mir-769 microRNA precursor family: an 80-nucleotide RNA sequence from Myotis myotis.
Rfam 15.1 lists 126 matches to the family in 109 species.
A search with the family's covariance model found it, with a score of 58 bits.
The source organism's lineage runs through Eukaryota, Deuterostomia, Gnathostomata, Dipnotetrapodomorpha and Myotis.
Pairs were carried over by alignment from the consensus structure, which was predicted with RNAalifold.
[Rfam]
RNA sequence: GCGCGCCGACCUGAGAACUCCGGGUUCUGAGCUGUGAUGCUGCUCUGAGCUGGGAUCUCUCGGGUGAUGGUUCAGGGCUG
Numbered sequence: 001g002c003g004c005g006c007c008g009a010c011c012u013g014a015g016a017a018c019u020c021c022g023g024g025u026u027c028u029g030a031g032c033u034g035u036g037a038u039g040c041u042g043c044u045c046u047g048a049g050c051u052g053g054g055a056u057c058u059c060u061c062g063g064g065u066g067a068u069g070g071u072u073c074a075g076g077g078c079u080g
Stems, first nucleotide, its partner, number of pairs: 003078002006075001008073001011070003016065001018063002022059003026055003030051004